[Rfam]
RNA sequence: AGCAGAGUAGGAAAACGUGCGUUAAGUGCCAGCCGGACGGGGAGUUGCCGGCGGGACGAAAAGUAAGGAUUACUUGCGGUACGUUUUUCGCAUCCCGCUGCU
Numbered sequence: 001a002g003c004a005g006a007g008u009a010g011g012a013a014a015a016c017g018u019g020c021g022u023u024a025a026g027u028g029c030c031a032g033c034c035g036g037a038c039g040g041g042g043a044g045u046u047g048c049c050g051g052c053g054g055g056a057c058g059a060a061a062a063g064u065a066a067g068g069a070u071u072a073c074u075u076g077c078g079g080u081a082c083g084u085u086u087u088u089c090g091c092a093u094c095c096c097g098c099u100g101c102u
Stems, first nucleotide, its partner, number of pairs: 001102005010089010020078003026057002029055002032052005040095003044091001061075004